[Rfam]
Rfam assigns this 130-nucleotide RNA from Streptomyces sp. MS191 to the family "Streptomyces RNA 5676".
Rfam describes the family as follows. Identified by deep sequencing of transcriptome at the end of exponential growth phase.
By type it is a small RNA.
A reference for the family is Vockenhuber et al. (2011), "Deep sequencing-based identification of small non-coding RNAs in Streptomyces coelicolor", RNA Biol.
The organism belongs to Streptomyces, within Bacteria.
The base pairs follow the family's consensus structure.
Nucleotides: 130
Stems, first nucleotide, its partner, number of pairs: 004121004009117002018039003022035005043073005049067002053063002076089004094112008122129002
Number, partner (000 for none) and nucleotide at each position: 001000a002000g003000a004121u005120g006119a007118g008000a009117g010116a011000a012000a013000c014000a015000c016000c017000c018039c019038g020037c021000c022035c023034g024033c025032a026031g027000g028000g029000a030000u031026c032025u033024g034023c035022g036000a037020g038019c039018g040000a041000c042000u043073c044072c045071g046070g047069g048000a049067c050066g051000a052000u053063g054062c055000a056000a057000c058000c059000c060000c061000a062054g063053c064000c065000c066050c067049g068000c069047c070046c071045c072044g073043g074000c075000c076089g077088u078087g079086c080000c081000c082000u083000c084000g085000c086079g087078c088077a089076c090000a091000c092000c093000a094112c095111u096110g097109g098108a099107g100106c101105c102000u103000c104000u105101g106100g107099c108098u109097c110096c111095g112094g113000a114000a115000c116010u117009c118007c119006u120005c121004a122129c123128c124000g125000a126000u127000c128123g129122g130000a